Description
A member of the RNA family "SAH (S-adenosyl-L-homocysteine) riboswitch aptamer" from Saccharothrix algeriensis, 76 nucleotides long. Rfam links the family to the GO terms regulation of gene expression and S-adenosylhomocysteine metabolic process.
RNA sequence: GAGGUCGAGAGGCGCUGCAACGGGCAUCGGGCCCGCCACGCUCGACCUCCGAUCCUUCCCAAGGGCGCCUCCCGCU
Numbered sequence: 001g002a003g004g005u006c007g008a009g010a011g012g013c014g015c016u017g018c019a020a021c022g023g024g025c026a027u028c029g030g031g032c033c034c035g036c037c038a039c040g041c042u043c044g045a046c047c048u049c050c051g052a053u054c055c056u057u058c059c060c061a062a063g064g065g066c067g068c069c070u071c072c073c074g075c076u
Base pairs, nucleotide, nucleotide: 002048003047004046005045006044007043008042021035022034023033024032025031
The match comes from Rfam's covariance-model search (37 bits). The literature on the family includes a 2008 paper in Mol Cell by Wang et al., "Riboswitches that sense S-adenosylhomocysteine and activate genes involved in coenzyme recycling". The source organism's lineage runs through Bacteria, Actinomycetota, Actinomycetes, Pseudonocardiales and Saccharothrix.